RNA sequence: UGGCCAUCUAGAGCAACCGAGAGACCUGGCUCGACGACAUUGCAGCAACCCCCUUCAUGGUGCGGGUGCUUCCGCCAGGAACGAUGGAGG
Numbered sequence: 001u002g003g004c005c006a007u008c009u010a011g012a013g014c015a016a017c018c019g020a021g022a023g024a025c026c027u028g029g030c031u032c033g034a035c036g037a038c039a040u041u042g043c044a045g046c047a048a049c050c051c052c053c054u055u056c057a058u059g060g061u062g063c064g065g066g067u068g069c070u071u072c073c074g075c076c077a078g079g080a081a082c083g084a085u086g087g088a089g090g
Stems, first nucleotide, its partner, number of pairs: 001090001004087005013043004021032003026078004044070004049066002051062001053060002074082001
This 90-nucleotide RNA from Actinomyces sp. oral taxon 849 belongs to the Rfam family "SAM riboswitch aptamer (S box leader)". Lineage of the source: Bacteria > Bacillati > Actinomycetes > Actinomycetales > Actinomyces sp. oral taxon 849. Pairs were carried over by alignment from the consensus structure, which is taken from published work. The match comes from Rfam's covariance-model search (44 bits).